mir-28 microRNA precursor family: a 68-nucleotide RNA from Cricetulus griseus.
Gene Ontology terms of the family: RISC complex and miRNA-mediated post-transcriptional gene silencing.
Rfam's curators put it in the seed alignment.
[Rfam]
RNA sequence: CCUGCCCUCGAGGAGCUCACAGUCUAGUAUGUCUCCUUCCUACUAGACUGAGGCUCCUUGAGGACAGG
Numbered sequence: 001c002c003u004g005c006c007c008u009c010g011a012g013g014a015g016c017u018c019a020c021a022g023u024c025u026a027g028u029a030u031g032u033c034u035c036c037u038u039c040c041u042a043c044u045a046g047a048c049u050g051a052g053g054c055u056c057c058u059u060g061a062g063g064a065c066a067g068g
Stems, first nucleotide, its partner, number of pairs: 001068004006063012020050010